Background
SAM riboswitch aptamer (S box leader): a 91-nucleotide RNA sequence from Sporosarcina sp. P19. The organism belongs to Sporosarcina, within Bacteria. Rfam links the family to the GO term regulation of gene expression.

RNA sequence: UUUCUAUCGAGAGAAGUUGAGGGACUGGCCCAAUGAAACUUCGGCAACAUCAUUGUGCCAAAUCCAGCAAGCGUAGCUUGAGAGAUAGAAA
Numbered sequence: 001u002u003u004c005u006a007u008c009g010a011g012a013g014a015a016g017u018u019g020a021g022g023g024a025c026u027g028g029c030c031c032a033a034u035g036a037a038a039c040u041u042c043g044g045c046a047a048c049a050u051c052a053u054u055g056u057g058c059c060a061a062a063u064c065c066a067g068c069a070a071g072c073g074u075a076g077c078u079u080g081a082g083a084g085a086u087a088g089a090a091a
Base pairs, nucleotide, nucleotide: 001091002090003089004088005087006086007085008084013042014041015040016039017038021031022030023029025067026066027065028064043059044058045057046056048055049054063083068080069079070078071077072076